Overview
The family of this 84-nucleotide RNA from Salarias fasciatus is "mir-135 microRNA precursor family". Gene Ontology terms of the family: gene silencing by miRNA and RISC complex. A reference for the family is Kim et al. (2004), "Identification of many microRNAs that copurify with polyribosomes in mammalian neurons", Proc Natl Acad Sci U S A. The source organism's lineage runs through Eukaryota, Deuterostomia, Euteleosteomorpha, Blennioidei and Salarias.
[Rfam]
RNA sequence: UUGCUGUUGUGUCUUAUGGCUUUUUAUUCCUACGUGAUGGUAGAUGGGCUCAUGUAGGAGUAGAAGCCACUAAACACACGGCGA
Numbered sequence: 001u002u003g004c005u006g007u008u009g010u011g012u013c014u015u016a017u018g019g020c021u022u023u024u025u026a027u028u029c030c031u032a033c034g035u036g037a038u039g040g041u042a043g044a045u046g047g048g049c050u051c052a053u054g055u056a057g058g059a060g061u062a063g064a065a066g067c068c069a070c071u072a073a074a075c076a077c078a079c080g081g082c083g084a
Stems, first nucleotide, its partner, number of pairs: 002083006009077004014072001017069007026061012